Shown here is an 83-nucleotide sequence from Oryza meridionalis, a member of the family "small nucleolar RNA snoR117". Rfam links the family to the GO terms RNA processing and nucleolus. On this family, see Chen and Wu, Nucleic Acids Res 2009: "Mining small RNA sequencing data: a new approach to identify small nucleolar RNAs in Arabidopsis". By type it is a C/D-box small nucleolar RNA. It scores 44 bits against the family's covariance model.
RNA sequence: GGCCUGUGAUUUGAGAUCAAUUGUCCGUACCAUCUGAUACUCUUGAUGUUUCACAAUUGCCAAAUUAUUCAUCUAUGAGGCCC
Numbered sequence: 001g002g003c004c005u006g007u008g009a010u011u012u013g014a015g016a017u018c019a020a021u022u023g024u025c026c027g028u029a030c031c032a033u034c035u036g037a038u039a040c041u042c043u044u045g046a047u048g049u050u051u052c053a054c055a056a057u058u059g060c061c062a063a064a065u066u067a068u069u070c071a072u073c074u075a076u077g078a079g080g081c082c083c
Base pairs, nucleotide, nucleotide: 001082002081003080004079